[Rfam]
RNA sequence: CCCUGACAGUCGCAUGGUGCGGCUGACACUAGCCACGACAGGAGAUAAUCAUG
Numbered sequence: 001c002c003c004u005g006a007c008a009g010u011c012g013c014a015u016g017g018u019g020c021g022g023c024u025g026a027c028a029c030u031a032g033c034c035a036c037g038a039c040a041g042g043a044g045a046u047a048a049u050c051a052u053g
Stems, first nucleotide, its partner, number of pairs: 002042004007025005
The family of this 53-nucleotide RNA is "Mu-gpT-DE RNA".
Pairs were carried over by alignment from the consensus structure, which is taken from published work.
It is one of the family's seed sequences.